[Rfam]
RNA sequence: AAAACAGCCCCUAUGUAUUGGAUCUUUGGCAGUUUUGGCCCCCAAGGCCACUUUUGACUUAGUCUUCGCUGACGUGGCACCCACAUCCCUUAAGUGAGGUGCCACGUCAGCGAAGACUAAGUCAAAAGUGGCUUUGGGGGCCAAAAUUGCCAAAUAUCUAAUACAUAGGGGUUGUUUU
Numbered sequence: 001a002a003a004a005c006a007g008c009c010c011c012u013a014u015g016u017a018u019u020g021g022a023u024c025u026u027u028g029g030c031a032g033u034u035u036u037g038g039c040c041c042c043c044a045a046g047g048c049c050a051c052u053u054u055u056g057a058c059u060u061a062g063u064c065u066u067c068g069c070u071g072a073c074g075u076g077g078c079a080c081c082c083a084c085a086u087c088c089c090u091u092a093a094g095u096g097a098g099g100u101g102c103c104a105c106g107u108c109a110g111c112g113a114a115g116a117c118u119a120a121g122u123c124a125a126a127a128g129u130g131g132c133u134u135u136g137g138g139g140g141c142c143a144a145a146a147u148u149g150c151c152a153a154a155u156a157u158c159u160a161a162u163a164c165a166u167a168g169g170g171g172u173u174g175u176u177u178u
Base pairs, nucleotide, nucleotide: 001178002177004175005174006173007172008171012167013166014165015164016163017162018161019160020159021158022157023156025154026153027152028151029150030149031148032147033146034145035144036143037142038141039140040139041138042137043136044135045134072107073106075104076103077102078101079100080099081098
MIR2619 microRNA precursor family: a 178-nucleotide RNA from Medicago truncatula. A search with the family's covariance model found it, with a score of 163 bits.